[Rfam]
RNA sequence: AGCUGGAAGGAAGAAUCCUGACGUCCAUAGUUGGACUAAGGUAAAUUCCUAACAGCCC
Numbered sequence: 001a002g003c004u005g006g007a008a009g010g011a012a013g014a015a016u017c018c019u020g021a022c023g024u025c026c027a028u029a030g031u032u033g034g035a036c037u038a039a040g041g042u043a044a045a046u047u048c049c050u051a052a053c054a055g056c057c058c
Stems, first nucleotide, its partner, number of pairs: 002056004008050005017041003023036005

Shown here is a 58-nucleotide RNA from Orthotulasvirus tulasnellae, a member of the family "Pestivirus 3' UTR SLI". It is annotated as a cis-regulatory element. A reference for the family is Deng and Brock (1993), "5' and 3' untranslated regions of pestivirus genome: primary and secondary structure analyses", Nucleic Acids Res. NCBI's taxonomy places the organism under Viruses, Riboviria, Elliovirales, Tulasviridae, Orthotulasvirus tulasnellae.